[Rfam]
RNA sequence: ACGAGGUGCCCCUUUCGGCUGGUCAGAUAAUGGUGUGGUAAUCACUAUCUUCCCAGCUCAAGGGGCACUUCUCUUACCAAGACGCGCCGGAAUACCCACCCCCGGACGGUGGAU
Numbered sequence: 001a002c003g004a005g006g007u008g009c010c011c012c013u014u015u016c017g018g019c020u021g022g023u024c025a026g027a028u029a030a031u032g033g034u035g036u037g038g039u040a041a042u043c044a045c046u047a048u049c050u051u052c053c054c055a056g057c058u059c060a061a062g063g064g065g066c067a068c069u070u071c072u073c074u075u076a077c078c079a080a081g082a083c084g085c086g087c088c089g090g091a092a093u094a095c096c097c098a099c100c101c102c103c104g105g106a107c108g109g110u111g112g113a114u
Stems, first nucleotide, its partner, number of pairs: 003071011015060001017058001019056004025050004032043003096112005
Dot-bracket structure: ..(((((((((((.(.(.((((..((((...(((......)))...))))..)))).).))))))))))))........................(((((.......)))))..
RNA: Actinobacteria sRNA Ms_IGR-7
Organism: Mobilicoccus pelagius